[Rfam]
RNA sequence: UCAAAUACAGUCCAAAUACACACGCACGUCGACACAUGAGGCGGGGUGCCCGCUCAGGCGGGUUGUCUCAUGGGACGUUGCGGAGGCCAAAC
Numbered sequence: 001u002c003a004a005a006u007a008c009a010g011u012c013c014a015a016a017u018a019c020a021c022a023c024g025c026a027c028g029u030c031g032a033c034a035c036a037u038g039a040g041g042c043g044g045g046g047u048g049c050c051c052g053c054u055c056a057g058g059c060g061g062g063u064u065g066u067c068u069c070a071u072g073g074g075a076c077g078u079u080g081c082g083g084a085g086g087c088c089a090a091a092c
Base pairs, nucleotide, nucleotide: 023082024081025080026079027077028076029075030074035072036071037070038069039068040067041066042065043064048063049062050061051060052059
RNA: t44 RNA
Organism: Salinisphaera japonica